[Rfam]
RNA sequence: UGGUAGAUGCACCCUGUUAAUAACGGCGCCUUUUAUAGUUUAUAGAUGGCGCCUUUUUAU
Dot-bracket structure: .(((......)))............(((((.(((((.....))))).)))))........